mir-1302 microRNA precursor family: a 52-nucleotide RNA from Cnephaeus nilssonii. The source organism's lineage runs through Eukaryota, Metazoa, Craniata, Teleostomi and Cnephaeus.
RNA sequence: CUUUUAGUAUAAGUAUAUCCCAUGCAAUAUUUAGGAUAUAAUUAUAGUAAAA
Dot-bracket structure: .....(.(((((.(((.(((.(........)..))).))).))))).)....
Rfam 15.1 lists 16,160 matches to the family in 135 species.